[Rfam]
RNA sequence: ACCCAAUCCGAGGGGCGCGUACUGCUAGCGCUGAGAUGGACCAGACGCAGGUCCAGCACCCUUAGAACCUGAUCCGGGGAAUCUCCGAUUGUGGAGGUGGCCGGCGUAGGAACGGAGCGAGCGCAUGGC
Numbered sequence: 001a002c003c004c005a006a007u008c009c010g011a012g013g014g015g016c017g018c019g020u021a022c023u024g025c026u027a028g029c030g031c032u033g034a035g036a037u038g039g040a041c042c043a044g045a046c047g048c049a050g051g052u053c054c055a056g057c058a059c060c061c062u063u064a065g066a067a068c069c070u071g072a073u074c075c076g077g078g079g080a081a082u083c084u085c086c087g088a089u090u091g092u093g094g095a096g097g098u099g100g101c102c103g104g105c106g107u108a109g110g111a112a113c114g115g116a117g118c119g120a121g122c123g124c125a126u127g128g129c
Base pairs, nucleotide, nucleotide: 007116008115009114010113011062012061013060014059016056017031018030019029020028038054039053040052041051042050068110069109070108071107074104075103076102077101
TPP riboswitch aptamer (THI element): a 129-nucleotide RNA sequence from Henriciella algicola. The organism belongs to Henriciella, within Bacteria. Rfam describes the family as follows. Vitamin B(1) in its active form thiamin pyrophosphate (TPP) is an essential coenzyme that is synthesised by coupling of pyrimidine and thiazole moieties in bacteria. The previously detected thiamin-regulatory element, thi box was extended, resulting in a new, highly conserved RNA secondary structure, the THI element, which is widely distributed in eubacteria and also occurs in some archaea. Analysis of operon structures identified a large number of new candidate thiamin-regulated genes, mostly transporters, in various prokaryotic organisms. The THI element is a riboswitch that directly binds to TPP to regulate gene expression through a variety of mechanisms in archaea, bacteria and eukaryotes. through a variety of mechanisms in archaea, bacteria and eukaryotes. It scores 56 bits against the family's covariance model. Gene Ontology term of the family: thiamine pyrophosphate binding.